[Rfam]
Rfam assigns this 75-nucleotide sequence from Caenorhabditis brenneri to the family "mir-239 microRNA precursor family". The source organism's lineage runs through Eukaryota, Eumetazoa, Ecdysozoa, Rhabditidae and Caenorhabditis. The family's consensus secondary structure was predicted with RNAalifold.
RNA sequence: CGAGUUUUGUACUAAACAUAGGUACUGAAAUAAAAUAUUUUAUUUACUCAGUUCCUAGUCUAGUGCAAGGGUUGC
Numbered sequence: 001c002g003a004g005u006u007u008u009g010u011a012c013u014a015a016a017c018a019u020a021g022g023u024a025c026u027g028a029a030a031u032a033a034a035a036u037a038u039u040u041u042a043u044u045u046a047c048u049c050a051g052u053u054c055c056u057a058g059u060c061u062a063g064u065g066c067a068a069g070g071g072u073u074g075c
Base pairs, nucleotide, nucleotide: 003072005070006069007068008067009066010065011064012063016059017058019057020056021055022054025051026050027049028045029044030043